Notes: A member of the RNA family "Group II catalytic intron D1-D4-2" from Necator americanus, 119 nucleotides long.

RNA sequence: GAAGGAGGGCCCUUCGGAGCCGGUUUUUAGGAGCAGGCUUCAAACCACCCCAAGCUGCUGUGGUAAAGAGCCAUGGUGGUGAGCGUUGGGGGAAAAGUCCACAACUGAAGUGGGCAGGU
Numbered sequence: 001g002a003a004g005g006a007g008g009g010c011c012c013u014u015c016g017g018a019g020c021c022g023g024u025u026u027u028u029a030g031g032a033g034c035a036g037g038c039u040u041c042a043a044a045c046c047a048c049c050c051c052a053a054g055c056u057g058c059u060g061u062g063g064u065a066a067a068g069a070g071c072c073a074u075g076g077u078g079g080u081g082a083g084c085g086u087u088g089g090g091g092g093a094a095a096a097g098u099c100c101a102c103a104a105c106u107g108a109a110g111u112g113g114g115c116a117g118g119u
Stems, first nucleotide, its partner, number of pairs: 001015005016041006023034004046118001048091006054080002057077003061073004097115006
For this family Rfam cites "Control of branch-site choice by a group II intron" (Chu et al., EMBO J, 2001). The family has 144 seed sequences and 1,231 matches in Rfam 15.1. Rfam's curators write: Group II introns are found in rRNA, tRNA and mRNA of organelles in fungi, plants and protists, and also in mRNA in bacteria.